[Rfam]
Shown here is a 67-nucleotide RNA sequence from Danaus plexippus, a member of the family "mir-1000 microRNA precursor family".
Taxonomically the source falls in Danaus plexippus (Eukaryota, Metazoa, Eumetazoa, Danaina).
Gene Ontology terms of the family: RISC complex, miRNA-mediated post-transcriptional gene silencing and negative regulation of glutamate secretion, neurotransmission.
RNA sequence: CUCGUCCAUAUUGUCCUGUCACAGCAGUACGUGCUGGCUACUGCUGCGUCGGGACAAGCCGGUCGAG
Number, nucleotide and partner (000 for none) at each position: 001c000002u000003c065004g064005u000006c062007c000008a000009u000010a000011u000012u056013g055014u054015c053016c052017u051018g050019u000020c000021a000022c046023a045024g044025c043026a042027g041028u040029a039030c000031g000032u000033g000034c000035u000036g000037g000038c000039u029040a028041c027042u026043g025044c024045u023046g022047c000048g000049u000050c018051g017052g016053g015054a014055c013056a012057a000058g000059c000060c000061g000062g006063u000064c004065g003066a000067g000

The match comes from Rfam's covariance-model search (67 bits).